[Rfam]
The record is a 358-nucleotide RNA sequence from Asticcacaulis endophyticus, which matches "Alphaproteobacteria transfer-messenger RNA" in Rfam. The family's RNA type in Rfam is non-coding RNA gene. A search with the family's covariance model found it, with a score of 247 bits. The organism belongs to Asticcacaulis, within Bacteria.
RNA sequence: GCCCUUCCCCUCCCCGGCUAAAGCCUCUAUAUAGGUAGGGUCAGUUUCGGCUGACUAUGGGGAUAAACGUGCGUGUAAUAAGCGAUUUGGACCCGGGUGCAAUUCCCGGCGGCUCCACCAAAACUUCAGACGUUAUCAUCUGGAAACAUGGGGCCGAUCAGGAUCGACAAGCGUGUAAAGACGUGGCUUUCUCUCGGUGUGGGCCUCCGCGAUCGGCCUUAUUGUAACUGCAAACGAUAACUUUGCACAGGAUGUUGCUGUCGCUGCGUAAUGCGGUGCCGGUAAUUCCGACCUAAACUCCUGGGGGUAGCCCCCCAGGCGGGGCCCGGAGGGCGCCUGGCAACAGAAGCCCUCCACU
Numbered sequence: 001g002c003c004c005u006u007c008c009c010c011u012c013c014c015c016g017g018c019u020a021a022a023g024c025c026u027c028u029a030u031a032u033a034g035g036u037a038g039g040g041u042c043a044g045u046u047u048c049g050g051c052u053g054a055c056u057a058u059g060g061g062g063a064u065a066a067a068c069g070u071g072c073g074u075g076u077a078a079u080a081a082g083c084g085a086u087u088u089g090g091a092c093c094c095g096g097g098u099g100c101a102a103u104u105c106c107c108g109g110c111g112g113c114u115c116c117a118c119c120a121a122a123a124c125u126u127c128a129g130a131c132g133u134u135a136u137c138a139u140c141u142g143g144a145a146a147c148a149u150g151g152g153g154c155c156g157a158u159c160a161g162g163a164u165c166g167a168c169a170a171g172c173g174u175g176u177a178a179a180g181a182c183g184u185g186g187c188u189u190u191c192u193c194u195c196g197g198u199g200u201g202g203g204c205c206u207c208c209g210c211g212a213u214c215g216g217c218c219u220u221a222u223u224g225u226a227a228c229u230g231c232a233a234a235c236g237a238u239a240a241c242u243u244u245g246c247a248c249a250g251g252a253u254g255u256u257g258c259u260g261u262c263g264c265u266g267c268g269u270a271a272u273g274c275g276g277u278g279c280c281g282g283u284a285a286u287u288c289c290g291a292c293c294u295a296a297a298c299u300c301c302u303g304g305g306g307g308u309a310g311c312c313c314c315c316c317a318g319g320c321g322g323g324g325c326c327c328g329g330a331g332g333g334c335g336c337c338u339g340g341c342a343a344c345a346g347a348a349g350c351c352c353u354c355c356a357c358u
Base pairs, nucleotide, nucleotide: 040055041054042053043052044051059194060193061192062191063190069187070186071184072183073182074181083173084172087170088169089168093109094108095107096106097105110156111155112154113153114152115151116150195209196208197207201219202218203217204216205215322338323337324336325335328355329354330353331352332351333350